[Rfam]
RNA sequence: GUACUCGCGACGGGAGAGACCGGCUCCGGCCGGCGCCGAAGGAGCAACCGCCCCGGAAACUCUCAGGCAAAAGGACCGUCGCGAGCAG
Numbered sequence: 001g002u003a004c005u006c007g008c009g010a011c012g013g014g015a016g017a018g019a020c021c022g023g024c025u026c027c028g029g030c031c032g033g034c035g036c037c038g039a040a041g042g043a044g045c046a047a048c049c050g051c052c053c054c055g056g057a058a059a060c061u062c063u064c065a066g067g068c069a070a071a072a073g074g075a076c077c078g079u080c081g082c083g084a085g086c087a088g
Base pairs, nucleotide, nucleotide: 006083007082008081009080010079011078012077013076020033021032022031023030035068036067037066038064039063042062043061044060048056049055
About this RNA
Rfam assigns this 88-nucleotide RNA sequence from Rhodoplanes elegans to the family "Glycine riboswitch aptamer". A search with the family's covariance model found it, with a score of 75 bits. The pairing is the family consensus, mapped onto this sequence. Rfam describes the family as follows. This family represents the bacterial glycine riboswitch.